[Rfam]
RNA sequence: CUACUUACCUGCAGGGGAGAUACCAUGAUCACGAAGGUGAUUUUCCUACAGCAAGCCUUAUUCAUUGCACUCUGGAUAUGCUUACCCCUGCAAUUCCUCCAAAUAUGGGAAACUUGACCACAUAAUUUGUGGUAGUGGGGGAGUGUGUUCAUAUUUCCCCU
Numbered sequence: 001c002u003a004c005u006u007a008c009c010u011g012c013a014g015g016g017g018a019g020a021u022a023c024c025a026u027g028a029u030c031a032c033g034a035a036g037g038u039g040a041u042u043u044u045c046c047u048a049c050a051g052c053a054a055g056c057c058u059u060a061u062u063c064a065u066u067g068c069a070c071u072c073u074g075g076a077u078a079u080g081c082u083u084a085c086c087c088c089u090g091c092a093a094u095u096c097c098u099c100c101a102a103a104u105a106u107g108g109g110a111a112a113c114u115u116g117a118c119c120a121c122a123u124a125a126u127u128u129g130u131g132g133u134a135g136u137g138g139g140g141g142a143g144u145g146u147g148u149u150c151a152u153a154u155u156u157c158c159c160c161u
Stems, first nucleotide, its partner, number of pairs: 011121001014118001015047006022041001024039003048089001051086001055082001057080001059078005091116003094112001095110002098108002138161004145154003